[Rfam]
RNA sequence: GAGCUAUGAAGAAGAUUUUAAAAGGAAUCUGAGAUUCCAUUGAAGACAUAAGAUCCAACUCUGAGCUCCCCUACUGA
Numbered sequence: 001g002a003g004c005u006a007u008g009a010a011g012a013a014g015a016u017u018u019u020a021a022a023a024g025g026a027a028u029c030u031g032a033g034a035u036u037c038c039a040u041u042g043a044a045g046a047c048a049u050a051a052g053a054u055c056c057a058a059c060u061c062u063g064a065g066c067u068c069c070c071c072u073a074c075u076g077a
Base pairs, nucleotide, nucleotide: 001068002067003066004065
The family of this 77-nucleotide sequence from Halcyon senegalensis is "Small nucleolar RNA SNORD19".
Clan: SNORD19 clan.
Pairs were carried over by alignment from the consensus structure.
The family's RNA type in Rfam is C/D-box small nucleolar RNA.
Rfam links the family to the GO terms nucleolus and RNA processing.
Lineage of the source: Eukaryota > Vertebrata > Archelosauria > Coraciiformes > Halcyon.